The record is an 87-nucleotide sequence from Pectobacterium atrosepticum, which matches "tRNA" in Rfam.
RNA sequence: GGUGAGGUGUCCGAGAGGCUGAAGGAGCACGCCUGGAAAGUGUGUAUACGUGAAAACGUAUCAAGGGUUCGAAUCCCUUCCUCACCG
Number, nucleotide and partner (000 for none) at each position: 001g086002g085003u084004g083005a082006g081007g080008u000009g000010u026011c025012c024013g000014a000015g000016a000017g000018g000019c000020u000021g000022a000023a000024g012025g011026a010027g000028c044029a043030c042031g041032c040033c000034u000035g000036g000037a000038a000039a000040g032041u031042g030043u029044g028045u000046a000047u000048a000049c000050g000051u000052g000053a000054a000055a000056a000057c000058g000059u000060a000061u000062c000063a079064a078065g077066g076067g075068u000069u000070c000071g000072a000073a000074u000075c067076c066077c065078u064079u063080c007081c006082u005083c004084a003085c002086c001087g000

The family's consensus secondary structure is taken from published work. The match comes from Rfam's covariance-model search (52 bits).